A member of the RNA family "Plastid-psbA-3 3UTR RNA" from Rhododendron simsii, 50 nucleotides long. Plastid psbA-3 is a non-coding RNA (ncRNA) present in plastids. It was identified in inverted repeat sequences in the 3 prime untranslate region (3UTR) of photosystem II quinone-binding protein (psbA). On this family, see Richter et al., Plant Commun 2023: "Retrograde signaling in plants: A critical review focusing on the GUN pathway and beyond". The match comes from Rfam's covariance-model search (51 bits). Pairs were carried over by alignment from the consensus structure, which was predicted with LocARNA. Clan: Plastid-psbA 3UTR RNA clan.
[Rfam]
RNA sequence: AAAGGAGCAAUGCACUCUUGAUAGAACAAGAGGUGAUUGCUCCCUUACUU
Numbered sequence: 001a002a003a004g005g006a007g008c009a010a011u012g013c014a015c016u017c018u019u020g021a022u023a024g025a026a027c028a029a030g031a032g033g034u035g036a037u038u039g040c041u042c043c044c045u046u047a048c049u050u
Stems, first nucleotide, its partner, number of pairs: 001046002004043008015032006